[Rfam]
RNA sequence: ACUGCCCUGUCAAAGCGAAGGCCUACGUUCCACGUGGGAACUUUUUUAGCUACGAUGGGGCUUU
Numbered sequence: 001a002c003u004g005c006c007c008u009g010u011c012a013a014a015g016c017g018a019a020g021g022c023c024u025a026c027g028u029u030c031c032a033c034g035u036g037g038g039a040a041c042u043u044u045u046u047u048a049g050c051u052a053c054g055a056u057g058g059g060g061c062u063u064u
Stems, first nucleotide, its partner, number of pairs: 001064001004061008014051003022038007
RNA: DUF3800-VIII RNA
Organism: Mucilaginibacter pedocola